RNA sequence: CGUAUCGGAGAUAAAAACACGACCCCGUCGGGUAGUCGGGGUGCGCCGACCGGCGUCAGUAACCUGCCUCCUUGGUUGUCCCUUCUCCGCGUGGUGACU
Numbered sequence: 001c002g003u004a005u006c007g008g009a010g011a012u013a014a015a016a017a018c019a020c021g022a023c024c025c026c027g028u029c030g031g032g033u034a035g036u037c038g039g040g041g042u043g044c045g046c047c048g049a050c051c052g053g054c055g056u057c058a059g060u061a062a063c064c065u066g067c068c069u070c071c072u073u074g075g076u077u078g079u080c081c082c083u084u085c086u087c088c089g090c091g092u093g094g095u096g097a098c099u
Base pairs, nucleotide, nucleotide: 006089007088008087009086010085011084022042023041024040025039026038027037043056044055045054046053047052066076067075068074
RNA: azaaromatic riboswitch aptamer (yjdF RNA)